[Rfam]
The family of this 105-nucleotide RNA sequence from Pisolithus microcarpus is "Small nucleolar RNA Z13/snr52".
The family's consensus secondary structure was predicted with PFOLD.
It scores 69 bits against the family's covariance model.
Gene Ontology terms of the family: RNA processing and nucleolus.
The family has 42 seed sequences and 1,203 matches in Rfam 15.1.

RNA sequence: AUAGAAACGAUGAAGUUAUUACGGAUGUAAAUGAGCACUAGCUCACGCGUCCGAGAGCGCAUAAUUCAUGUGGAUGUCUCCGUUGCCUUCCUUCUGACUUUUUUC
Dot-bracket structure: (....................((((.....................................................))))....................)..